[Rfam]
RNA: Small nucleolar RNA Z152/R70/R12/
RNA sequence: GGUGUUAUGAUGAGAUGAAGCACUUGAGCGUGUUUGGGCAGUGGACGGAACCACAAGGUUUCGCCGUGAGCCUCCAAUUUUAACGACUUCUCCUUCCACUGAGCACC
Numbered sequence: 001g002g003u004g005u006u007a008u009g010a011u012g013a014g015a016u017g018a019a020g021c022a023c024u025u026g027a028g029c030g031u032g033u034u035u036g037g038g039c040a041g042u043g044g045a046c047g048g049a050a051c052c053a054c055a056a057g058g059u060u061u062c063g064c065c066g067u068g069a070g071c072c073u074c075c076a077a078u079u080u081u082a083a084c085g086a087c088u089u090c091u092c093c094u095u096c097c098a099c100u101g102a103g104c105a106c107c
Stems, first nucleotide, its partner, number of pairs: 001107005